[Rfam]
Guanidine-II riboswitch aptamer (mini-ykkC): a 49-nucleotide RNA sequence from Methylocella silvestris. A search with the family's covariance model found it, with a score of 45 bits. For this family Rfam cites "The Structure of the Guanidine-II Riboswitch" (Huang et al., Cell Chem Biol, 2017). The base pairs follow the family's consensus structure, which is taken from published work.
RNA sequence: UCGCCGGGACGGCCCGGCGAUCCGAUACUCAACGGCCGGGACGACCUGG
Dot-bracket structure: ((((((((....))))))))...............(((((....)))))
Numbered sequence: 001u002c003g004c005c006g007g008g009a010c011g012g013c014c015c016g017g018c019g020a021u022c023c024g025a026u027a028c029u030c031a032a033c034g035g036c037c038g039g040g041a042c043g044a045c046c047u048g049g
Stems, first nucleotide, its partner, number of pairs: 001020008036049005